[Rfam]
RNA: TPP riboswitch aptamer (THI element)
Organism: Mycobacterium adipatum
RNA sequence: ACCCGUCCACACGGGAGCGCGCACCAGCGCGCUGAGAGGACGGCUAGGGCCGUCGACCGUACGAACCUGACCGGAUAAUGCCGGCGUAGGGAGAUGUGUUGAUGAAUGU
Numbered sequence: 001a002c003c004c005g006u007c008c009a010c011a012c013g014g015g016a017g018c019g020c021g022c023a024c025c026a027g028c029g030c031g032c033u034g035a036g037a038g039g040a041c042g043g044c045u046a047g048g049g050c051c052g053u054c055g056a057c058c059g060u061a062c063g064a065a066c067c068u069g070a071c072c073g074g075a076u077a078a079u080g081c082c083g084g085c086g087u088a089g090g091g092a093g094a095u096g097u098g099u100u101g102a103u104g105a106a107u108g109u
Base pairs, nucleotide, nucleotide: 007096010093011060012059013058014057017032018031019030020029021028039054040053041052042051043050066090067089068088069087071084072083073082074081